The family of this 48-nucleotide RNA sequence from Roseicyclus mahoneyensis is "SAM/SAH riboswitch aptamer". For this family Rfam cites "The structure of the SAM/SAH-binding riboswitch" (Weickhmann et al., Nucleic Acids Res, 2019). A search with the family's covariance model found it, with a score of 56 bits. The family's consensus secondary structure is taken from published work.

RNA sequence: GUUACCCCACAACGGCUUCCUGGCGUGGGGACAUUCAACAUUGGAGCA
Numbered sequence: 001g002u003u004a005c006c007c008c009a010c011a012a013c014g015g016c017u018u019c020c021u022g023g024c025g026u027g028g029g030g031a032c033a034u035u036c037a038a039c040a041u042u043g044g045a046g047c048a
Base pairs, nucleotide, nucleotide: 005030006029007028008027009026010025013022014021015047016046017045019044020043